[Rfam]
RNA sequence: UGAGUCGGCCGGGCGGUCGCGUCGAGGGAGACCUCGCCGAGGAACGUCCGGGCUCCGCAGAGCAAGGUGGUGGGUAACGCCCACCCGGGGUGACCCGCGGGACAGUGCCACAGAGAACAGACCGCCUCGACGUCCGGCCUCGGCCGGCGACGGGGUCAGGGUGAAACGGUGGUGUAAGAGACCACCAGCGUGCCGGGUGACCGGUGCGGCUCGGUAAACCCCACCUGGAGCAAGGUCAGACAGGGAGCGUUCGAGGGCUGCUCGCCCGAGCUCCCGGGUAGACCGCUGGAGGCGUGCGGCAACGUACGUCCUAGAGGGAUGGCCGCCACCCGCGCGGGGGAGACCGCGCGCGGGGACAGAACCCGGCGUACAGGCCGACUCAUCCA
Dot-bracket structure: ((((((((((((((((((.((.(((((....))))).))....[[[.[[[[[((((...[[[[.((((((((((.....)))))(((((....)))).)((...(((((............((((((((.((((...........)))).))))))..)).......((((((.......)))))).(((((((((....)))))))).)..)))..)))))))))))))...((((.....((((((......((((.]]]]))))..)))))).....))))......((((((((....))))))))..........)))))))..................................]]]]]]]].).))))))))))....
Source information:
Shown here is a 386-nucleotide RNA from Actinotalea ferrariae, a member of the family "Bacterial RNase P class A". A search with the family's covariance model found it, with a score of 287 bits.